[Rfam]
RNA sequence: CUAUGAUUAUAAGUUAAUCAUGGCGGAAGGAG
Numbered sequence: 001c002u003a004u005g006a007u008u009a010u011a012a013g014u015u016a017a018u019c020a021u022g023g024c025g026g027a028a029g030g031a032g
Base pairs, nucleotide, nucleotide: 001023002022003021004020005019006018007017008016
RNA: L31-Firmicutes ribosomal protein leader